Rfam assigns this 266-nucleotide RNA sequence from Salimicrobium jeotgali to the family "Bacterial large signal recognition particle RNA". The family's RNA type in Rfam is non-coding RNA gene. The signal recognition particle (SRP) is a universally conserved ribonucleoprotein involved in the co-translational targeting of proteins to membranes. Taxonomically the source falls in Salimicrobium (Bacteria, Bacillati, Bacillota, Bacilli).

RNA sequence: UCGUGCUAAGCGGGGAGGUAGCGGUGCCCUGCACUCGCAAGCCGCUAGAGCGAGGCUGAAUUCCUGCUCGAGGUGACAAAGUUUCAAGGUCUGCCUCACAAAAGCAGUGUUGACAUCCAGGUCCUGCGCAAUGAGAAGCAGUGAACCCUGUCAGGUCCGGAAGGAAGCAGCAGUAAGCUGUGCCUCUCGUGUGCCGCGGGAGUGCCUGGAUCGAGCUGUGAUUGUGAGUAACGCUUGGGGUUCUGUCAUCGACAGCAGGUGCACGG
Numbered sequence: 001u002c003g004u005g006c007u008a009a010g011c012g013g014g015g016a017g018g019u020a021g022c023g024g025u026g027c028c029c030u031g032c033a034c035u036c037g038c039a040a041g042c043c044g045c046u047a048g049a050g051c052g053a054g055g056c057u058g059a060a061u062u063c064c065u066g067c068u069c070g071a072g073g074u075g076a077c078a079a080a081g082u083u084u085c086a087a088g089g090u091c092u093g094c095c096u097c098a099c100a101a102a103a104g105c106a107g108u109g110u111u112g113a114c115a116u117c118c119a120g121g122u123c124c125u126g127c128g129c130a131a132u133g134a135g136a137a138g139c140a141g142u143g144a145a146c147c148c149u150g151u152c153a154g155g156u157c158c159g160g161a162a163g164g165a166a167g168c169a170g171c172a173g174u175a176a177g178c179u180g181u182g183c184c185u186c187u188c189g190u191g192u193g194c195c196g197c198g199g200g201a202g203u204g205c206c207u208g209g210a211u212c213g214a215g216c217u218g219u220g221a222u223u224g225u226g227a228g229u230a231a232c233g234c235u236u237g238g239g240g241u242u243c244u245g246u247c248a249u250c251g252a253c254a255g256c257a258g259g260u261g262c263a264c265g266g
Stems, first nucleotide, its partner, number of pairs: 001266006009057003012030004017025001019023001034054005063259006072250005080242009092230002096227006105220001106217003115211008123200006129191002132189005138181005148173004156165003